[Rfam]
RNA sequence: AUAUCAAUGUGUACUGGCGAUUAAACGUGGAUUACCACGAGGGAACACAUUGAUAGAUAAGCCGUUCGCCUGGGCAAAGUGU
Numbered sequence: 001a002u003a004u005c006a007a008u009g010u011g012u013a014c015u016g017g018c019g020a021u022u023a024a025a026c027g028u029g030g031a032u033u034a035c036c037a038c039g040a041g042g043g044a045a046c047a048c049a050u051u052g053a054u055a056g057a058u059a060a061g062c063c064g065u066u067c068g069c070c071u072g073g074g075c076a077a078a079g080u081g082u
Stems, first nucleotide, its partner, number of pairs: 003054010014042002016070005027038004061075003
RNA: ZMP/ZTP riboswitch aptamer (pfl RNA motif)
Organism: Bacillus benzoevorans